Annotation: The record is a 230-nucleotide part of an RNA from Jiangella asiatica, which matches "Bacterial large subunit ribosomal RNA" in Rfam. The organism belongs to Jiangella, within Bacteria.
RNA sequence: GAGUUAGUGGUGUGUGGCGAGGUUAACCCGUGUGGGGUAGCCGUAGCGAAAGCGAGUCCGAAGAGGGCGCCAGAGUCGCAUGCUCUAGACCCGAAGCGGAGUGAUCUACCCAUGGGCAGGGUGAAGCGGAGGUAAGACUUCGUGGAGGCCCGAACCGACCUACGUUGAAAAGUGGGCGGAUGACCUGUGGGUAGGGGUGAAAGGCCAAUCAAACUCCGUGAUAGCUGGUU
Numbered sequence: 001g002a003g004u005u006a007g008u009g010g011u012g013u014g015u016g017g018c019g020a021g022g023u024u025a026a027c028c029c030g031u032g033u034g035g036g037g038u039a040g041c042c043g044u045a046g047c048g049a050a051a052g053c054g055a056g057u058c059c060g061a062a063g064a065g066g067g068c069g070c071c072a073g074a075g076u077c078g079c080a081u082g083c084u085c086u087a088g089a090c091c092c093g094a095a096g097c098g099g100a101g102u103g104a105u106c107u108a109c110c111c112a113u114g115g116g117c118a119g120g121g122u123g124a125a126g127c128g129g130a131g132g133u134a135a136g137a138c139u140u141c142g143u144g145g146a147g148g149c150c151c152g153a154a155c156c157g158a159c160c161u162a163c164g165u166u167g168a169a170a171a172g173u174g175g176g177c178g179g180a181u182g183a184c185c186u187g188u189g190g191g192u193a194g195g196g197g198u199g200a201a202a203g204g205c206c207a208a209u210c211a212a213a214c215u216c217c218g219u220g221a222u223a224g225c226u227g228g229u230u
Stems, first nucleotide, its partner, number of pairs: 005087003009084010021042004027036003046053002056068004090228002093225001097218006106194011117182001119151004126143006155179003159176005196206003